[Rfam]
RNA sequence: AGAGUUGGUGGCUAGGGUUCCGAUCUUGCGUGCAAGGUGCUGGUCCAAGAGCCGCCCCCCGAAGGGAGAAAUCCUUCGGAUGCACGGCGGGACAAAAGCCCGGGAGGC
Number, nucleotide and partner (000 for none) at each position: 001a000002g000003a000004g000005u000006u000007g056008g055009u054010g053011g052012c051013u000014a000015g046016g045017g000018u000019u000020c043021c042022g040023a038024u037025c036026u035027u034028g033029c000030g000031u000032g000033c028034a027035a026036g025037g024038u023039g000040c022041u000042g021043g020044u000045c016046c015047a000048a000049g000050a000051g012052c011053c010054g009055c008056c007057c000058c000059c079060c078061g077062a076063a075064g074065g000066g000067a000068g000069a000070a000071a000072u000073c000074c064075u063076u062077c061078g060079g059080a000081u000082g000083c103084a000085c106086g000087g000088c000089g101090g100091g099092a000093c000094a000095a000096a000097a000098g000099c091100c090101c089102g000103g083104g000105a000106g085107g000108c000

Shown here is a 108-nucleotide sequence from Rhodopseudomonas palustris, a member of the family "Guanidine-I riboswitch aptamer". On this family, see Barrick et al., Proc Natl Acad Sci U S A 2004: "New RNA motifs suggest an expanded scope for riboswitches in bacterial genetic control". Taxonomically the source falls in Rhodopseudomonas palustris (Bacteria, Alphaproteobacteria, Nitrobacteraceae, Rhodopseudomonas). About the family: This family represents a conserved RNA structure found upstream of the ykkC and yxkD genes in Bacillus subtilis and related genes in other bacteria. The function of this family is unclear although it has been suggested that it may function to switch on efflux pumps and detoxification systems in response to harmful environmental molecules. The sequence is in the family's curated seed alignment.